RNA sequence: GCUUACAGCUAGACUUAUCUAUAGUUAUUUAGCUAGACUUUAGUCUAGUAUAUUUUUCUACAGGCAGGCUAGUAUUAGUUUAAAUAGCUAGAUAAAAACUUUUGUUACGUAUCUUUCUCUAGAGAAAACUUAUAAAAAAAGUAAAAUACGGCUAGUUUAGACUAAAGUCUGCGUAUCUGCUAGAAUACUAGUAUAAUAGCUGUAAACAGCCUGUUUUAAAAUACAG
Numbered sequence: 001g002c003u004u005a006c007a008g009c010u011a012g013a014c015u016u017a018u019c020u021a022u023a024g025u026u027a028u029u030u031a032g033c034u035a036g037a038c039u040u041u042a043g044u045c046u047a048g049u050a051u052a053u054u055u056u057u058c059u060a061c062a063g064g065c066a067g068g069c070u071a072g073u074a075u076u077a078g079u080u081u082a083a084a085u086a087g088c089u090a091g092a093u094a095a096a097a098a099c100u101u102u103u104g105u106u107a108c109g110u111a112u113c114u115u116u117c118u119c120u121a122g123a124g125a126a127a128a129c130u131u132a133u134a135a136a137a138a139a140a141g142u143a144a145a146a147u148a149c150g151g152c153u154a155g156u157u158u159a160g161a162c163u164a165a166a167g168u169c170u171g172c173g174u175a176u177c178u179g180c181u182a183g184a185a186u187a188c189u190a191g192u193a194u195a196a197u198a199g200c201u202g203u204a205a206a207c208a209g210c211c212u213g214u215u216u217u218a219a220a221a222u223a224c225a226g
Stems, first nucleotide, its partner, number of pairs: 001207001003205009016066001018064003022060002070190007211226004
Shown here is a 226-nucleotide part of an RNA from Corynespora cassiicola, a member of the family "Eukaryotic large subunit ribosomal RNA". Lineage of the source: Eukaryota > Dikarya > Pleosporales > Corynespora > Corynespora cassiicola. Pairs were carried over by alignment from the consensus structure, which is taken from published work.